A member of the RNA family "mraW RNA" from Microcaecilia unicolor, 126 nucleotides long. Pairs were carried over by alignment from the consensus structure, which is taken from published work. The source organism's lineage runs through Eukaryota, Metazoa, Craniata, Teleostomi and Microcaecilia. It is annotated as a cis-regulatory element.
[Rfam]
RNA sequence: UGCUGGCUGAUCUGCAAGGCUUCGUUCUGCUUCUGUGAGUCUGACACCCUUCACAUACAACGUUGUACGUGCAGGAUGUCAGACUCACAGAAACAGAACGAAGCCUUGCAGAUCAGCCAGCAUUUC
Numbered sequence: 001u002g003c004u005g006g007c008u009g010a011u012c013u014g015c016a017a018g019g020c021u022u023c024g025u026u027c028u029g030c031u032u033c034u035g036u037g038a039g040u041c042u043g044a045c046a047c048c049c050u051u052c053a054c055a056u057a058c059a060a061c062g063u064u065g066u067a068c069g070u071g072c073a074g075g076a077u078g079u080c081a082g083a084c085u086c087a088c089a090g091a092a093a094c095a096g097a098a099c100g101a102a103g104c105c106u107u108g109c110a111g112a113u114c115a116g117c118c119a120g121c122a123u124u125u126c
Stems, first nucleotide, its partner, number of pairs: 010113007018105002021102009031092016